[Rfam]
Rfam assigns this 84-nucleotide sequence from Crocuta crocuta to the family "Guanidine-II riboswitch aptamer (mini-ykkC)". The base pairs follow the family's consensus structure, which is taken from published work. The organism belongs to Crocuta, within Eukaryota. A search with the family's covariance model found it, with a score of 32 bits. Simpler in structure and has fewer highly conserved nucleotide positions than the ykkC-yxkD leader. Its family is annotated with regulation of gene expression in the Gene Ontology.
RNA sequence: CGUCGGGGACGGGCCCCCGCGCGUUCUGCCUUCUCAGUGUAGCCCCGACGCCCCCCUGUCCUCACCUCCAUGGGGACGACCCCA
Numbered sequence: 001c002g003u004c005g006g007g008g009a010c011g012g013g014c015c016c017c018c019g020c021g022c023g024u025u026c027u028g029c030c031u032u033c034u035c036a037g038u039g040u041a042g043c044c045c046c047g048a049c050g051c052c053c054c055c056c057u058g059u060c061c062u063c064a065c066c067u068c069c070a071u072g073g074g075g076a077c078g079a080c081c082c083c084a
Stems, first nucleotide, its partner, number of pairs: 001050008071084005